Rfam assigns this 105-nucleotide RNA from Thermanaerothrix daxensis to the family "c-di-GMP-II-GAG riboswitch aptamer". The family is grouped with related families in Rfam's "c-di-GMP_II riboswitch clan". Its family is annotated with cyclic-di-GMP binding and regulation of gene expression in the Gene Ontology. The organism belongs to Thermanaerothrix, within Bacteria.

RNA sequence: UCUUCAAUUGGCGGCGAUGACGCGCAGGUCUGUUUUUUGGUCGCUUAUCGGUUUGUUGCCGAGAGGGCCUGCGCCGAGCCAAUAGCGAAACCGGCCAGUUGUUAC
Numbered sequence: 001u002c003u004u005c006a007a008u009u010g011g012c013g014g015c016g017a018u019g020a021c022g023c024g025c026a027g028g029u030c031u032g033u034u035u036u037u038u039g040g041u042c043g044c045u046u047a048u049c050g051g052u053u054u055g056u057u058g059c060c061g062a063g064a065g066g067g068c069c070u071g072c073g074c075c076g077a078g079c080c081a082a083u084a085g086c087g088a089a090a091c092c093g094g095c096c097a098g099u100u101g102u103u104a105c
Stems, first nucleotide, its partner, number of pairs: 005101007013080003022074007030067001039092002041088005